[Rfam]
RNA sequence: UUGCGGGACCGGGCCCCUCUGGCUUGGCGCGCUGGCCCAUUCGGGCAGCCGCCUUGCGAUGUCGGACCGCAUCG
Numbered sequence: 001u002u003g004c005g006g007g008a009c010c011g012g013g014c015c016c017c018u019c020u021g022g023c024u025u026g027g028c029g030c031g032c033u034g035g036c037c038c039a040u041u042c043g044g045g046c047a048g049c050c051g052c053c054u055u056g057c058g059a060u061g062u063c064g065g066a067c068c069g070c071a072u073c074g
Base pairs, nucleotide, nucleotide: 006068007067009065010064011063012062022057023056026053027052028051029050

terC RNA: a 74-nucleotide RNA sequence from Novosphingobium sp. MD-1.
The family has 129 seed sequences and 1,112 matches in Rfam 15.1.
NCBI's taxonomy places the organism under Bacteria, Pseudomonadati, Pseudomonadota, Sphingomonadales, Novosphingobium.
It scores 48 bits against the family's covariance model.